[Rfam]
RNA sequence: ACGAGAUGCCGUGCCCGUACGAGCGGCGCGACCGAUAAACUGGCGGCGGAGUGCCGGGCGCAGCCCUGUGCGCACUCCGCCAAAGAUCUAGCCAGCAGCCGCUGCAACCCCAGGGAG
Numbered sequence: 001a002c003g004a005g006a007u008g009c010c011g012u013g014c015c016c017g018u019a020c021g022a023g024c025g026g027c028g029c030g031a032c033c034g035a036u037a038a039a040c041u042g043g044c045g046g047c048g049g050a051g052u053g054c055c056g057g058g059c060g061c062a063g064c065c066c067u068g069u070g071c072g073c074a075c076u077c078c079g080c081c082a083a084a085g086a087u088c089u090a091g092c093c094a095g096c097a098g099c100c101g102c103u104g105c106a107a108c109c110c111c112a113g114g115g116a117g
Stems, first nucleotide, its partner, number of pairs: 048078006057067002093104004
RNA: Streptomyces-metK RNA
Organism: Actinacidiphila paucisporea